[Rfam]
RNA sequence: UGCGUUGCUGUCAGUAACAAGGAUUCAUCCUGUUGUGAUGCUGCAGGCUUACAGGAAAUCACUGUUACCGAGGGCGACCGU
Numbered sequence: 001u002g003c004g005u006u007g008c009u010g011u012c013a014g015u016a017a018c019a020a021g022g023a024u025u026c027a028u029c030c031u032g033u034u035g036u037g038a039u040g041c042u043g044c045a046g047g048c049u050u051a052c053a054g055g056a057a058a059u060c061a062c063u064g065u066u067a068c069c070g071a072g073g074g075c076g077a078c079c080g081u
Base pairs, nucleotide, nucleotide: 011071012070014068015067016066017065018064019063022060023059024058025057029055030054031053032052033051035049037048039046
The record is an 81-nucleotide RNA from Sander lucioperca, which matches "mir-459 microRNA precursor family" in Rfam. Taxonomically the source falls in Sander (Eukaryota, Opisthokonta, Euteleosteomorpha, Ctenosquamata).